[Rfam]
RNA sequence: UGGCACUUGAUACUCACCGAGCUGUCUAAAUCCUGGUCUUGUCAGAGGCUUGUGAUACGCCGUGACAGCUGGGUUAAAGAAGUGCAAUAUAAACACGAAAGCCCUGAGUCUUCGAAGCCCAGUGUGUGGAGACACGCUCUGAGUUAUAGCUCAGAGGCACAGCU
Numbered sequence: 001u002g003g004c005a006c007u008u009g010a011u012a013c014u015c016a017c018c019g020a021g022c023u024g025u026c027u028a029a030a031u032c033c034u035g036g037u038c039u040u041g042u043c044a045g046a047g048g049c050u051u052g053u054g055a056u057a058c059g060c061c062g063u064g065a066c067a068g069c070u071g072g073g074u075u076a077a078a079g080a081a082g083u084g085c086a087a088u089a090u091a092a093a094c095a096c097g098a099a100a101g102c103c104c105u106g107a108g109u110c111u112u113c114g115a116a117g118c119c120c121a122g123u124g125u126g127u128g129g130a131g132a133c134a135c136g137c138u139c140u141g142a143g144u145u146a147u148a149g150c151u152c153a154g155a156g157g158c159a160c161a162g163c164u
Stems, first nucleotide, its partner, number of pairs: 003085006016074003020070007027059001030056003033052001035050006101158003122137006138155007
Dot-bracket structure: ..((((((.......(((.((((((((..((((.((((((....)))))).).)))..)....))))))).))).....))))))...............(((..................((((((....))))))(((((((....))))))))))......